[Rfam]
Rfam assigns this 237-nucleotide RNA from Mesorhabditis belari to the family "Nuclear RNase P". Its family is annotated with tRNA processing, ribonuclease P complex and ribonuclease P activity in the Gene Ontology. Rfam classes the family as a ribozyme. A search with the family's covariance model found it, with a score of 115 bits. For this family Rfam cites "Eukaryotic Ribonuclease P: A Plurality of Ribonucleoprotein Enzymes" (Xiao et al., Annu Rev Biochem, 2002). Pairs were carried over by alignment from the consensus structure, which is taken from published work.
RNA sequence: GUGGCGAGAAGAUAGCUUUGGGGGUGACUCACAGAUCUUUAUGGUCUAUUUGAAUACCCUCGGGAAGGUCUGAGGAAAGCCCUUGUACUUCCGAGAAGGAAGACGACUGAAUGGUCGUGAUCACGAAGAAGAAAAGUUCUCCUUUCGGGGAUUGGGAAUCGGGAUUGGCCAGCUCGAAAAAGCUGAGUGCGAUCGUCUAUGCAAGAGAACACAAUUCAGACUACUCUCUCAAGCCAC
Numbered sequence: 001g002u003g004g005c006g007a008g009a010a011g012a013u014a015g016c017u018u019u020g021g022g023g024g025u026g027a028c029u030c031a032c033a034g035a036u037c038u039u040u041a042u043g044g045u046c047u048a049u050u051u052g053a054a055u056a057c058c059c060u061c062g063g064g065a066a067g068g069u070c071u072g073a074g075g076a077a078a079g080c081c082c083u084u085g086u087a088c089u090u091c092c093g094a095g096a097a098g099g100a101a102g103a104c105g106a107c108u109g110a111a112u113g114g115u116c117g118u119g120a121u122c123a124c125g126a127a128g129a130a131g132a133a134a135a136g137u138u139c140u141c142c143u144u145u146c147g148g149g150g151a152u153u154g155g156g157a158a159u160c161g162g163g164a165u166u167g168g169c170c171a172g173c174u175c176g177a178a179a180a181a182g183c184u185g186a187g188u189g190c191g192a193u194c195g196u197c198u199a200u201g202c203a204a205g206a207g208a209a210c211a212c213a214a215u216u217c218a219g220a221c222u223a224c225u226c227u228c229u230c231a232a233g234c235c236a237c
Base pairs, nucleotide, nucleotide: 001237002236003235004234007229008228009227014198015197017195020061021060022059023058024057034046035045036044037043070219071218072217073216074215079169080168081167088102089101090100091099092098103118104117105116106115107114108113119166120165121164122163124161125160138151139150140149